[Rfam]
RNA sequence: AGCAGCUUGGCGCAGUGGAUAGCGUGUUGGGCUCAUAACCCAAAGGUCCCUUGAUCGAAACAAGAGCUGCUA
Numbered sequence: 001a002g003c004a005g006c007u008u009g010g011c012g013c014a015g016u017g018g019a020u021a022g023c024g025u026g027u028u029g030g031g032c033u034c035a036u037a038a039c040c041c042a043a044a045g046g047u048c049c050c051u052u053g054a055u056c057g058a059a060a061c062a063a064g065a066g067c068u069g070c071u072a
Stems, first nucleotide, its partner, number of pairs: 001071007010025004027043005050064004